The record is a 96-nucleotide RNA from Helicobacter apodemus, which matches "Selenocysteine transfer RNA" in Rfam. A search with the family's covariance model found it, with a score of 53 bits.
RNA sequence: AGGAGGGUAUAUGCCUCUGGUGAGCAUCGUGGGCUUCAAACCCAUUUGAGCGGAUAGGUGUCUAUUUGCUGGAGAGUUCGAUUCUCUCACCCUCUC
Number, nucleotide and partner (000 for none) at each position: 001a000002g095003g094004a093005g092006g091007g090008u089009a000010u000011a027012u026013g025014c000015c024016u023017c022018u000019g000020g000021u000022g017023a016024g015025c013026a012027u011028c000029g045030u044031g043032g042033g041034c000035u000036u000037c000038a000039a000040a000041c033042c032043c031044a030045u029046u000047u000048g000049a070050g069051c068052g067053g066054a065055u064056a000057g000058g000059u000060g000061u000062c000063u000064a055065u054066u053067u052068g051069c050070u049071g000072g000073a087074g086075a085076g084077u000078u000079c000080g000081a000082u000083u000084c076085u075086c074087u073088c000089a008090c007091c006092c005093u004094c003095u002096c000